This 102-nucleotide RNA from Fervidibacillus halotolerans belongs to the Rfam family "Purine riboswitch aptamer". Taxonomically the source falls in Fervidibacillus (Bacteria, Bacilli, Caryophanales, Bacillaceae). For this family Rfam cites "Structure of a natural guanine-responsive riboswitch complexed with the metabolite hypoxanthine" (Batey et al., Nature, 2004). It scores 97 bits against the family's covariance model. The family's consensus secondary structure is taken from published work. Rfam's curators write: Riboswitches are metabolite binding domains within certain messenger RNAs that serve as precision sensors for their corresponding targets.

[Rfam]
Nucleotides: 102
Base pairs, nucleotide, nucleotide: 018088019087020086021085022084023083024082025081029049031047032046033045034044035043058078059077060076061075062074063073064072
Number, partner (000 for none) and nucleotide at each position: 001000a002000a003000a004000g005000u006000a007000a008000u009000u010000u011000a012000a013000g014000c015000a016000u017000u018088c019087a020086c021085u022084c023083a024082u025081a026000u027000a028000a029049u030000c031047g032046c033045a034044g035043g036000a037000a038000u039000a040000u041000g042000g043035c044034c045033u046032g047031c048000a049029a050000g051000u052000c053000u054000c055000u056000a057000c058078c059077a060076g061075g062074u063073u064072a065000c066000c067000g068000u069000a070000a071000a072064u073063a074062a075061c076060c077059u078058g079000a080000c081025u082024a083023u084022g085021a086020g087019u088018g089000a090000g091000c092000a093000a094000u095000g096000u097000c098000u099000u100000g101000a102000a